[Rfam]
RNA sequence: UGAAUGCAAAACUGUAAAUCGCUCUGGAUAAAAGCGUCUGCUAAAUUGCUAAAA
Numbered sequence: 001u002g003a004a005u006g007c008a009a010a011a012c013u014g015u016a017a018a019u020c021g022c023u024c025u026g027g028a029u030a031a032a033a034g035c036g037u038c039u040g041c042u043a044a045a046u047u048g049c050u051a052a053a054a
Stems, first nucleotide, its partner, number of pairs: 013043001014041003020036004025031001

UnaL2 LINE 3' element: a 54-nucleotide RNA sequence from Salvelinus namaycush. Rfam 15.1 lists 493,311 matches to the family in 99 species. A search with the family's covariance model found it, with a score of 59 bits. Rfam classes the family as a cis-regulatory element. The organism belongs to Salvelinus, within Eukaryota.